[Rfam]
RNA: U12 minor spliceosomal RNA
RNA sequence: UUGCCUUAAAUUAAUGAGUAAGGAAAACAUAGCGAGUGGUCGAAGCCAUUCGCAGCAUUCUAUAAUGGAUGCGAGUUUUAUUUUUGGAGGGAGAUAGGCUGGCCUGGUGUUGACGCUGCUUACAUUGCAGAACUCUCCUGUGCGGGCCUCCUCA
Numbered sequence: 001u002u003g004c005c006u007u008a009a010a011u012u013a014a015u016g017a018g019u020a021a022g023g024a025a026a027a028c029a030u031a032g033c034g035a036g037u038g039g040u041c042g043a044a045g046c047c048a049u050u051c052g053c054a055g056c057a058u059u060c061u062a063u064a065a066u067g068g069a070u071g072c073g074a075g076u077u078u079u080a081u082u083u084u085u086g087g088a089g090g091g092a093g094a095u096a097g098g099c100u101g102g103c104c105u106g107g108u109g110u111u112g113a114c115g116c117u118g119c120u121u122a123c124a125u126u127g128c129a130g131a132a133c134u135c136u137c138c139u140g141u142g143c144g145g146g147c148c149u150c151c152u153c154a
Stems, first nucleotide, its partner, number of pairs: 004023005032053008055072004090153002093150001096149005102143001104140001107137001109135001116130004